Archaeal large subunit ribosomal RNA: a 451-nucleotide part of an RNA from Nitrosotalea sinensis. The family's consensus secondary structure is taken from published work. Taxonomically the source falls in Nitrosotalea (Archaea, Nitrososphaerota, Nitrososphaeria, Nitrosotaleaceae).

RNA sequence: CCUAACGAAGUGUAUCGCAGUACAGCCUUUAUGGAGACAGCGUGUCUUGUAGAGCACCGAUAGGGCAUGUCGGGAGAGAAAUCUUUCGCUGCCUAUUCAAACUCCGAAGAGAUGUGCGUCUAAGAAGUAAAGAGACGGAUUUACGUGGCGUAAGGCUCGUAAUCAAGAGGGGGACAACCCAGACUGAAGUUAAGGUCCCCAAGUUUUUGCUAAGUGUCAAACUGAAGGGCGUAUUUAAGCCAAGACAGCAGGGAGGUAAGCUCAGAAGCAGCUAUCCUUUAAAAAGUGCGUAACAGCUUACCUGCCGAGCUUGGAUGCCCCAAAAAUGGACGGGGCUAAAGCAAAGCACCGAUACUUCAGAUUGUUACCAUAGGUAACACAUGGUAGUUAGGCGUAGGGAUUGGGUCGAAGCAGGGUCGUGAGAUCCUGUGGACCGAUUCCUAUUGCAGAU
Numbered sequence: 001c002c003u004a005a006c007g008a009a010g011u012g013u014a015u016c017g018c019a020g021u022a023c024a025g026c027c028u029u030u031a032u033g034g035a036g037a038c039a040g041c042g043u044g045u046c047u048u049g050u051a052g053a054g055c056a057c058c059g060a061u062a063g064g065g066c067a068u069g070u071c072g073g074g075a076g077a078g079a080a081a082u083c084u085u086u087c088g089c090u091g092c093c094u095a096u097u098c099a100a101a102c103u104c105c106g107a108a109g110a111g112a113u114g115u116g117c118g119u120c121u122a123a124g125a126a127g128u129a130a131a132g133a134g135a136c137g138g139a140u141u142u143a144c145g146u147g148g149c150g151u152a153a154g155g156c157u158c159g160u161a162a163u164c165a166a167g168a169g170g171g172g173g174a175c176a177a178c179c180c181a182g183a184c185u186g187a188a189g190u191u192a193a194g195g196u197c198c199c200c201a202a203g204u205u206u207u208u209g210c211u212a213a214g215u216g217u218c219a220a221a222c223u224g225a226a227g228g229g230c231g232u233a234u235u236u237a238a239g240c241c242a243a244g245a246c247a248g249c250a251g252g253g254a255g256g257u258a259a260g261c262u263c264a265g266a267a268g269c270a271g272c273u274a275u276c277c278u279u280u281a282a283a284a285a286g287u288g289c290g291u292a293a294c295a296g297c298u299u300a301c302c303u304g305c306c307g308a309g310c311u312u313g314g315a316u317g318c319c320c321c322a323a324a325a326a327u328g329g330a331c332g333g334g335g336c337u338a339a340a341g342c343a344a345a346g347c348a349c350c351g352a353u354a355c356u357u358c359a360g361a362u363u364g365u366u367a368c369c370a371u372a373g374g375u376a377a378c379a380c381a382u383g384g385u386a387g388u389u390a391g392g393c394g395u396a397g398g399g400a401u402u403g404g405g406u407c408g409a410a411g412c413a414g415g416g417u418c419g420u421g422a423g424a425u426c427c428u429g430u431g432g433a434c435c436g437a438u439u440c441c442u443a444u445u446g447c448a449g450a451u
Stems, first nucleotide, its partner, number of pairs: 001392006011024005026134001027132006036120003040117008052105001053103002059098002063094005072087006138164002141162005147157002169180003184360007194350003203347001205346006227321003231318010248305005254278003259273003279283001284299001288297002361382002363379005393446001395443010411430008